[Rfam]
RNA sequence: UAACGACAAAGGCAAACCCUGAGUGAUUAGGGGACGCAAAGUAAUGGGGUCUUUAAUCCUCCUAAAUCCCCCCUUUAUAAAAGGGGGACUAAGGGGGAUUUCAGGAAAAUAGAAAGACAGCCUUACUGCCGAA
Numbered sequence: 001u002a003a004c005g006a007c008a009a010a011g012g013c014a015a016a017c018c019c020u021g022a023g024u025g026a027u028u029a030g031g032g033g034a035c036g037c038a039a040a041g042u043a044a045u046g047g048g049g050u051c052u053u054u055a056a057u058c059c060u061c062c063u064a065a066a067u068c069c070c071c072c073c074u075u076u077a078u079a080a081a082a083g084g085g086g087g088a089c090u091a092a093g094g095g096g097g098a099u100u101u102c103a104g105g106a107a108a109a110u111a112g113a114a115a116g117a118c119a120g121c122c123u124u125a126c127u128g129c130c131g132a133a
Stems, first nucleotide, its partner, number of pairs: 012037002017032006040127004047122002049118006
Shown here is a 133-nucleotide RNA from Candidatus Brocadia fulgida, a member of the family "c-di-GMP-I riboswitch aptamer". Rfam's curators write: GEMM was predicted in a large-scale screen for bacterial structured RNA regulatory elements.